Record summary: Bacterial large subunit ribosomal RNA: a 380-nucleotide part of an RNA from Oceanobacillus halophilus. The source organism's lineage runs through Bacteria, Bacillati, Bacillota, Caryophanales and Oceanobacillus.
[Rfam]
RNA sequence: GAAAAAAGAGUGAGAAUCUCUUUCACCGAAUGCCUAAGGUUUCCUGAGGAAGGCUCGUCCUCUCAGGGUUAGUCGGGACCUAAGCCGAGGCCGAAAGGCGUAGGCGAUGGACAACAGGCAGAUAUUCCUGUACCACCUCGUGACCGUUUUGAGUGAUGGGGGGACGCAGUAGGAUAAGGAAAGCGCACCGAUGGACGUGUGCGCCCAAGCAGUGAGAAAGUCAGGUAGGCAAAUCCGCCUGGCCAUUUCAAGCUGUGAUGGGGAGGUCACCUAAGACCGAAGUUCCGGAUUUCACACUGCCAAGAAAAGCCUCUAGCAAGGUCACAGGUGCCCGUACCGCAAACCGACACAGGUAGGCGAGGAGAGAAUCCUAAGGUGAG
Numbered sequence: 001g002a003a004a005a006a007a008g009a010g011u012g013a014g015a016a017u018c019u020c021u022u023u024c025a026c027c028g029a030a031u032g033c034c035u036a037a038g039g040u041u042u043c044c045u046g047a048g049g050a051a052g053g054c055u056c057g058u059c060c061u062c063u064c065a066g067g068g069u070u071a072g073u074c075g076g077g078a079c080c081u082a083a084g085c086c087g088a089g090g091c092c093g094a095a096a097g098g099c100g101u102a103g104g105c106g107a108u109g110g111a112c113a114a115c116a117g118g119c120a121g122a123u124a125u126u127c128c129u130g131u132a133c134c135a136c137c138u139c140g141u142g143a144c145c146g147u148u149u150u151g152a153g154u155g156a157u158g159g160g161g162g163g164a165c166g167c168a169g170u171a172g173g174a175u176a177a178g179g180a181a182a183g184c185g186c187a188c189c190g191a192u193g194g195a196c197g198u199g200u201g202c203g204c205c206c207a208a209g210c211a212g213u214g215a216g217a218a219a220g221u222c223a224g225g226u227a228g229g230c231a232a233a234u235c236c237g238c239c240u241g242g243c244c245a246u247u248u249c250a251a252g253c254u255g256u257g258a259u260g261g262g263g264a265g266g267u268c269a270c271c272u273a274a275g276a277c278c279g280a281a282g283u284u285c286c287g288g289a290u291u292u293c294a295c296a297c298u299g300c301c302a303a304g305a306a307a308a309g310c311c312u313c314u315a316g317c318a319a320g321g322u323c324a325c326a327g328g329u330g331c332c333c334g335u336a337c338c339g340c341a342a343a344c345c346g347a348c349a350c351a352g353g354u355a356g357g358c359g360a361g362g363a364g365a366g367a368a369u370c371c372u373a374a375g376g377u378g379a380g
Stems, first nucleotide, its partner, number of pairs: 005023006024378004032358004038338002043067006052060002074334004079110002084105003088101001090099003114131005134330005140325006153317002158313004166300004172293003178286004183204006205261002209256004216249003220243007228236002265278004344353002360372004

Rfam links the family to the GO terms ribosome and structural constituent of ribosome.